[Rfam]
RNA sequence: UUCGCUUUUACCUGGCGAUCUGCUAAACACAUCCGCGCGUAGGUCCGGACUGCAACCGGGCCCUCUCUUCACAAGAGUGUCCCUGCGCG
Numbered sequence: 001u002u003c004g005c006u007u008u009u010a011c012c013u014g015g016c017g018a019u020c021u022g023c024u025a026a027a028c029a030c031a032u033c034c035g036c037g038c039g040u041a042g043g044u045c046c047g048g049a050c051u052g053c054a055a056c057c058g059g060g061c062c063c064u065c066u067c068u069u070c071a072c073a074a075g076a077g078u079g080u081c082c083c084u085g086c087g088c089g
Base pairs, nucleotide, nucleotide: 002018003017004016005015006014036089037088038087039086040085042062043061044060045059046058047057048056063079065077066076067075068074069073
RNA: ATPC RNA motif